[Rfam]
RNA: Bacterial RNase P class A
Organism: Desulfonauticus submarinus
RNA sequence: GGAGUUGGACAGGCUACCGCCUCUAUUUUUUGAUAGAGGAGGAAAGUCCGGGCUCCGUAGGGCAAGACGCUGGGUAACACCCAGUGAGGGCGACCUCAGGAAAGUGCCACAGAAAGGAGACCGCCGAGCACCUAAAAGGGCACAGAAAAGUUUAUUAAAUAAGAAAAUUUAUCUUUUCCCUUUUAGGUGCUCGGUAAGGGUGAAAGGGUGGGGUAAGAGCCCACCAGCUGUCAUGGUGACAUGACAGGCUAGGUAAACCCCGUCUGGAGCAAGGCCAAAUAGGAAGGCGCUUUUAGGCUGGCCCGGCCGAUGCCUUCGGGUAGGCCGCUAGAGGCAGGGAGUAAUCCUUGUCCUAGAGUAAUGGUAGCCACCUGGAUUCAGGAACAGAACCCGGCUUAUGUCCAACUCCAGAU
Dot-bracket structure: ((((((((((((((((((.((((((((....))))))))....[[[.[[[[[((((...[[[[.((((((((((.....)))))(((((....)))))((...(((((............((((((((((((((((((((.....................................))))))))))))))))))..)).......((((((.......)))))).(((((((((....)))))))).)..)))..)))))))))))))...((((......((((((.......((((.]]]]))))...)))))).....))))......((((((((....))))))))..........)))))))....................]]]]]]]].)))))))))))....
Numbered sequence: 001g002g003a004g005u006u007g008g009a010c011a012g013g014c015u016a017c018c019g020c021c022u023c024u025a026u027u028u029u030u031u032g033a034u035a036g037a038g039g040a041g042g043a044a045a046g047u048c049c050g051g052g053c054u055c056c057g058u059a060g061g062g063c064a065a066g067a068c069g070c071u072g073g074g075u076a077a078c079a080c081c082c083a084g085u086g087a088g089g090g091c092g093a094c095c096u097c098a099g100g101a102a103a104g105u106g107c108c109a110c111a112g113a114a115a116g117g118a119g120a121c122c123g124c125c126g127a128g129c130a131c132c133u134a135a136a137a138g139g140g141c142a143c144a145g146a147a148a149a150g151u152u153u154a155u156u157a158a159a160u161a162a163g164a165a166a167a168u169u170u171a172u173c174u175u176u177u178c179c180c181u182u183u184u185a186g187g188u189g190c191u192c193g194g195u196a197a198g199g200g201u202g203a204a205a206g207g208g209u210g211g212g213g214u215a216a217g218a219g220c221c222c223a224c225c226a227g228c229u230g231u232c233a234u235g236g237u238g239a240c241a242u243g244a245c246a247g248g249c250u251a252g253g254u255a256a257a258c259c260c261c262g263u264c265u266g267g268a269g270c271a272a273g274g275c276c277a278a279a280u281a282g283g284a285a286g287g288c289g290c291u292u293u294u295a296g297g298c299u300g301g302c303c304c305g306g307c308c309g310a311u312g313c314c315u316u317c318g319g320g321u322a323g324g325c326c327g328c329u330a331g332a333g334g335c336a337g338g339g340a341g342u343a344a345u346c347c348u349u350g351u352c353c354u355a356g357a358g359u360a361a362u363g364g365u366a367g368c369c370a371c372c373u374g375g376a377u378u379c380a381g382g383a384a385c386a387g388a389a390c391c392c393g394g395c396u397u398a399u400g401u402c403c404a405a406c407u408c409c410a411g412a413u
Stems, first nucleotide, its partner, number of pairs: 001409011012369007020039008044397003048394005053269004060304004065265005070084005085098005099260002104258002106254003121199002123195018207225006227249001228247008273326004283317006296308004333352008